The family of this 110-nucleotide RNA from Ensifer fredii is "Alphaproteobacterial ar15". A reference for the family is del Val et al. (2007), "Identification of differentially expressed small non-coding RNAs in the legume endosymbiont Sinorhizobium meliloti by comparative genomics", Mol Microbiol. Taxonomically the source falls in Ensifer fredii (Bacteria, Pseudomonadati, Rhizobiaceae, Ensifer). Rfam's curators put it in the seed alignment. Rfam classes the family as a small RNA. Clan: suhB sRNA clan.
RNA sequence: AGUUGAUGCACAUGGCGGUUUUCCUCCCAGUUCCGCUGCAACAGCUGUUCCCCUCUGGAGGUUCAUACCUUCAAACUCACGGGCCGCGGUUUUUCCGGCGGCCCUUUUUU
Number, nucleotide and partner (000 for none) at each position: 001a046002g045003u044004u043005g042006a000007u040008g039009c038010a000011c000012a000013u000014g000015g036016c035017g034018g033019u000020u000021u000022u000023c000024c000025u000026c000027c000028c000029a000030g000031u000032u000033c018034c017035g016036c015037u000038g009039c008040a007041a000042c005043a004044g003045c002046u001047g000048u000049u000050c000051c000052c000053c000054u000055c000056u073057g072058g071059a070060g069061g068062u067063u000064c000065a000066u000067a062068c061069c060070u059071u058072c057073a056074a000075a000076c000077u000078c000079a000080c000081g104082g103083g102084c101085c100086g000087c097088g096089g095090u000091u000092u000093u000094u000095c089096c088097g087098g000099c000100g085101g084102c083103c082104c081105u000106u000107u000108u000109u000110u000